RNA sequence: AUUAGAUUGGUGAUGCAUUGAAGAUAAUACUACGUUAUCUAUCUGGAAUUUUUGAGUUUGGAAAUUAGAAUAUCUUUUUUACUGAGACCCAAU
Numbered sequence: 001a002u003u004a005g006a007u008u009g010g011u012g013a014u015g016c017a018u019u020g021a022a023g024a025u026a027a028u029a030c031u032a033c034g035u036u037a038u039c040u041a042u043c044u045g046g047a048a049u050u051u052u053u054g055a056g057u058u059u060g061g062a063a064a065u066u067a068g069a070a071u072a073u074c075u076u077u078u079u080u081a082c083u084g085a086g087a088c089c090c091a092a093u
Base pairs, nucleotide, nucleotide: 001093002092003091005089007087
Dot-bracket structure: (((.(.(...............................................................................).).)))
Rfam assigns this 93-nucleotide RNA from Phtheirospermum japonicum to the family "Small nucleolar RNA snoR27". The family's consensus secondary structure was predicted with WAR. For this family Rfam cites "Multiple snoRNA gene clusters from Arabidopsis" (Brown et al., RNA, 2001). The match comes from Rfam's covariance-model search (47 bits). Its family is annotated with nucleolus and RNA processing in the Gene Ontology. The source organism's lineage runs through Eukaryota, Streptophyta, Tracheophyta, asterids and Phtheirospermum.